[Rfam]
RNA sequence: GUAAUGGUUGCUGAGUAACGUAUAACAGCGUAAAACACCAUCGCCGGACACGAUCGAAGAGG
Dot-bracket structure: ...((((.(((((.((...))....))))).......)))).....................
Annotation
cow-rumen-1 RNA: a 62-nucleotide sequence. By type it is a small RNA.